[Rfam]
Notes
Rfam assigns this 76-nucleotide sequence from Megalops atlanticus to the family "U1A polyadenylation inhibition element (PIE)". About the family: This family represents the U1A polyadenylation inhibition element (PIE). PIE is a regulatory RNA which is responsible for the regulation of the length of the polyA tail of the U1A pre-mRNA. The PIE is located in the U1A mRNA 3' UTR. PIE adopts a U-shaped structure, with binding sites for a single U1A protein at each bend and when complexed with the two proteins it blocks activity of poly(A) polymerase (PAP), and inhibits its activity. The family's consensus secondary structure is taken from published work. For this family Rfam cites "Global and Local Dynamics of the U1A Polyadenylation Inhibition Element (PIE) RNA and PIE RNA-U1A Complexes" (Clerte and Hall, Biochemistry, 2004). It is annotated as a cis-regulatory element. The family has 39 seed sequences and 510 matches in Rfam 15.1.

RNA sequence: AUCAAAGGCAUUGCACCCAGAGUCUGGGCCACCAGACAUUGUACCUGGAGCUGUGUUAAUUAAAAAAAUCUGUGCU
Numbered sequence: 001a002u003c004a005a006a007g008g009c010a011u012u013g014c015a016c017c018c019a020g021a022g023u024c025u026g027g028g029c030c031a032c033c034a035g036a037c038a039u040u041g042u043a044c045c046u047g048g049a050g051c052u053g054u055g056u057u058a059a060u061u062a063a064a065a066a067a068a069u070c071u072g073u074g075c076u
Stems, first nucleotide, its partner, number of pairs: 005054001007052003017048004022037005